RNA: Bacterial RNase P class A
RNA sequence: AGAGUAAGUUGGGUGAUCGCGGGAUAUUUUAUAUAUUUCGAGGAAGGUCCGGACUCCACAGGAUAGGAUAGCGGCUAACAGCCGUCUAGUUUUGUAUAAUUCUAUUGUAUAGAGCUAAGAAAUAGGGCCACAGAGACGAGUUUGCAAUUAACUUAUUGAUAAUAAAAUCAUUGGUUUUGCAAGGUGAAACGCGGCAACCUUUAUCCGGAGCAACAUCAAAUAGGCAUGCGUUUGAUAUUAUAUCAUGAAGAGUAGUCCGCUUUAGUAUGCGGGUAGAUGGCUACAACAAAUUUGCAAAAAUUUGUGCAGAUGAAUGAUCAUCAGUUUAUUUUUAAUAAACCUACAGAAUCCGGCCUAUAGGCUUACUCUUGUU
Number, nucleotide and partner (000 for none) at each position: 001a369002g368003a367004g366005u365006a364007a363008g362009u361010u360011g358012g322013g321014u320015g319016a318017u317018c316019g000020c040021g039022g038023g037024a036025u035026a034027u033028u000029u000030u000031a000032u000033a027034u026035a025036u024037u023038u022039c021040g020041a000042g000043g000044a000045a356046g355047g354048u000049c353050c352051g351052g350053a349054c210055u209056c208057c207058a000059c000060a000061g258062g257063a256064u255065a000066g206067g205068a204069u203070a202071g085072c084073g083074g082075c081076u000077a000078a000079c000080a000081g075082c074083c073084g072085u071086c119087u117088a116089g115090u114091u113092u112093u111094g110095u109096a108097u107098a106099a105100u104101u000102c000103u000104a100105u099106u098107g097108u096109a095110u094111a093112g092113a091114g090115c089116u088117a087118a000119g086120a201121a200122a000123u000124a000125g199126g198127g195128c194129c193130a000131c000132a000133g000134a000135g000136a000137c000138g000139a000140g000141u000142u183143u182144g180145c179146a178147a177148u000149u000150a000151a000152c000153u000154u000155a000156u000157u000158g000159a000160u000161a000162a000163u000164a000165a000166a000167a000168u000169c000170a000171u000172u000173g000174g000175u000176u000177u147178u146179g145180c144181a000182a143183g142184g000185u000186g000187a000188a000189a000190c000191g000192c000193g129194g128195c127196a000197a000198c126199c125200u121201u120202u070203a069204u068205c067206c066207g057208g056209a055210g054211c000212a000213a000214c279215a278216u277217c276218a000219a000220a000221u000222a000223g000224g270225c269226a268227u267228g266229c265230g000231u000232u000233u000234g000235a000236u000237a000238u000239u000240a000241u000242a000243u000244c000245a000246u000247g000248a000249a263250g262251a261252g260253u259254a000255g064256u063257c062258c061259g253260c252261u251262u250263u249264a000265g229266u228267a227268u226269g225270c224271g000272g000273g000274u000275a000276g217277a216278u215279g214280g000281c000282u000283a000284c000285a000286a305287c304288a303289a302290a301291u300292u299293u298294g000295c000296a000297a000298a293299a292300a291301u290302u289303u288304g287305u286306g000307c000308a000309g000310a000311u000312g000313a000314a000315u000316g018317a017318u016319c015320a014321u013322c012323a000324g000325u000326u000327u000328a000329u000330u000331u000332u000333u000334a000335a000336u000337a000338a000339a000340c000341c000342u000343a000344c000345a000346g000347a000348a000349u053350c052351c051352g050353g049354c047355c046356u045357a000358u011359a000360g010361g009362c008363u007364u006365a005366c004367u003368c002369u001370u000371g000372u000373u000